RNA sequence: GUGCAGUGAUGUUUUGUCAACACAUCAUUCUGAAAAAAGUAUGUGGUGACUUUCUAUAACUGAGCACA
Numbered sequence: 001g002u003g004c005a006g007u008g009a010u011g012u013u014u015u016g017u018c019a020a021c022a023c024a025u026c027a028u029u030c031u032g033a034a035a036a037a038a039g040u041a042u043g044u045g046g047u048g049a050c051u052u053u054c055u056a057u058a059a060c061u062g063a064g065c066a067c068a
Stems, first nucleotide, its partner, number of pairs: 001067004
RNA: Small nucleolar RNA SNORD63